Rfam assigns this 301-nucleotide RNA from Mortierella hygrophila to the family "Metazoan signal recognition particle RNA". Taxonomically the source falls in Mortierella (Eukaryota, Mortierellomycotina, Mortierellomycetes, Mortierellaceae).
[Rfam]
RNA sequence: UCGGCCAGUCUUCAGCGAACUGGUGUGAGUCCUUGCUUUGGGCCGGUAUUUGGAUGAUGAAUUGCUCGAGGCUGGGAUAACGUGUACCGCGGCGACUCAGGUAUAUCGCCCAUUGGAAGCUCGGUGUUGACAUUCUGUCCUAGACGUAGGUCUGAGGCAGGAGGCCAUUAAAUAACUGACUAUCGUAGGCCAGCAAUGGAUCAACGAGAAUGUUGGUAGCACUGGGCAGUCUGGUGGAUUACGAGAAUUAGUGGGGGUUGCGAUACAUGCCAGCUUUGGGUGGAGACUCCCAUCCGUAUCU
Numbered sequence: 001u002c003g004g005c006c007a008g009u010c011u012u013c014a015g016c017g018a019a020c021u022g023g024u025g026u027g028a029g030u031c032c033u034u035g036c037u038u039u040g041g042g043c044c045g046g047u048a049u050u051u052g053g054a055u056g057a058u059g060a061a062u063u064g065c066u067c068g069a070g071g072c073u074g075g076g077a078u079a080a081c082g083u084g085u086a087c088c089g090c091g092g093c094g095a096c097u098c099a100g101g102u103a104u105a106u107c108g109c110c111c112a113u114u115g116g117a118a119g120c121u122c123g124g125u126g127u128u129g130a131c132a133u134u135c136u137g138u139c140c141u142a143g144a145c146g147u148a149g150g151u152c153u154g155a156g157g158c159a160g161g162a163g164g165c166c167a168u169u170a171a172a173u174a175a176c177u178g179a180c181u182a183u184c185g186u187a188g189g190c191c192a193g194c195a196a197u198g199g200a201u202c203a204a205c206g207a208g209a210a211u212g213u214u215g216g217u218a219g220c221a222c223u224g225g226g227c228a229g230u231c232u233g234g235u236g237g238a239u240u241a242c243g244a245g246a247a248u249u250a251g252u253g254g255g256g257g258u259u260g261c262g263a264u265a266c267a268u269g270c271c272a273g274c275u276u277u278g279g280g281u282g283g284a285g286a287c288u289c290c291c292a293u294c295c296g297u298a299u300c301u
Stems, first nucleotide, its partner, number of pairs: 001046003004024006011017001029043003048299002051296006059289002062286002065283001067278009081269006088262001090260004096255004106244003110237002113234005119227009128167002131164001133162007141154005168174001175217006190199003